The family of this 210-nucleotide RNA sequence from Candidatus Thiomargarita nelsonii is "HNH endonuclease-associated RNA and ORF (HEARO) RNA".

RNA sequence: GUCAACAACCCACUAAGCCCUUGGGGACUUAGCGGCUUUUCAUCUUAGGAUUUUAAGCCCAGUUGACCAAGCUAGGUGUUCACUCAUAGGCACUCUGCGAUGCUUCGCCAGUCGCGGACUCUGCGGCAAGUCAUUAAAUAGCUCUAAGGGUUUAAAGGCAGUGUGGCUUGCACACAAACCGUUCUAUAACAUUGCUGAGGUGAAACGAAG
Numbered sequence: 001g002u003c004a005a006c007a008a009c010c011c012a013c014u015a016a017g018c019c020c021u022u023g024g025g026g027a028c029u030u031a032g033c034g035g036c037u038u039u040u041c042a043u044c045u046u047a048g049g050a051u052u053u054u055a056a057g058c059c060c061a062g063u064u065g066a067c068c069a070a071g072c073u074a075g076g077u078g079u080u081c082a083c084u085c086a087u088a089g090g091c092a093c094u095c096u097g098c099g100a101u102g103c104u105u106c107g108c109c110a111g112u113c114g115c116g117g118a119c120u121c122u123g124c125g126g127c128a129a130g131u132c133a134u135u136a137a138a139u140a141g142c143u144c145u146a147a148g149g150g151u152u153u154a155a156a157g158g159c160a161g162u163g164u165g166g167c168u169u170g171c172a173c174a175c176a177a178a179c180c181g182u183u184c185u186a187u188a189a190c191a192u193u194g195c196u197g198a199g200g201u202g203a204a205a206c207g208a209a210g
Base pairs, nucleotide, nucleotide: 001067002066003065004064005063006062010035011034013032014031019026020025036057037056038055070196071195072194074192078190079189080188084181090124091123094118095117096116097115098114099113100112101111102206104204105203106202107201108200109199126171127170128169129168130167131166132165133164134163138162139161141159142158143157145155147153
The match comes from Rfam's covariance-model search (89 bits). The literature on the family includes a 2009 paper in Nature by Weinberg et al., "Exceptional structured noncoding RNAs revealed by bacterial metagenome analysis".